[Rfam]
RNA sequence: CCGUGCUAGGUGGGGAGGUAGCGGUGCCCUGUCACUCGCAAUCCGCUAUAGCGAGGCUGAAUCCCUUCUAGAGGUUUUGUCACCGUAGGGUCUGCCCUAAGUAAGUGGUGUUGACGCUUGGGUUCUACGCAACGAAAACCCACGAACCCUGUCAGGUCCGGAAGGAAGCAGCAGUAAGUGGCCCCUUUCGUGUGCCGUAGAGUCGCCUGGGCCGAGCUAACUGCUCAGGUAACGCCUAGGGUGGCAUGAUCGAAGGAAGGUGCACGG
Numbered sequence: 001c002c003g004u005g006c007u008a009g010g011u012g013g014g015g016a017g018g019u020a021g022c023g024g025u026g027c028c029c030u031g032u033c034a035c036u037c038g039c040a041a042u043c044c045g046c047u048a049u050a051g052c053g054a055g056g057c058u059g060a061a062u063c064c065c066u067u068c069u070a071g072a073g074g075u076u077u078u079g080u081c082a083c084c085g086u087a088g089g090g091u092c093u094g095c096c097c098u099a100a101g102u103a104a105g106u107g108g109u110g111u112u113g114a115c116g117c118u119u120g121g122g123u124u125c126u127a128c129g130c131a132a133c134g135a136a137a138a139c140c141c142a143c144g145a146a147c148c149c150u151g152u153c154a155g156g157u158c159c160g161g162a163a164g165g166a167a168g169c170a171g172c173a174g175u176a177a178g179u180g181g182c183c184c185c186u187u188u189c190g191u192g193u194g195c196c197g198u199a200g201a202g203u204c205g206c207c208u209g210g211g212c213c214g215a216g217c218u219a220a221c222u223g224c225u226c227a228g229g230u231a232a233c234g235c236c237u238a239g240g241g242u243g244g245c246a247u248g249a250u251c252g253a254a255g256g257a258a259g260g261u262g263c264a265c266g267g
Stems, first nucleotide, its partner, number of pairs: 001267006009058003012030004017025001019023001035055005064260006073251004079245005086238004093231002097228002100225003105221002107218003116212008124201006130192002133190005140181004149174004157166003
Shown here is a 267-nucleotide RNA sequence from Halalkalibacterium halodurans, a member of the family "Bacterial large signal recognition particle RNA". The family is grouped with related families in Rfam's "SRP clan". For this family Rfam cites "SRPDB: Signal Recognition Particle Database" (Rosenblad et al., Nucleic Acids Res, 2003). The family's consensus secondary structure is taken from published work. Lineage of the source: Bacteria > Bacillota > Caryophanales > Bacillaceae > Halalkalibacterium halodurans. It is one of the family's seed sequences.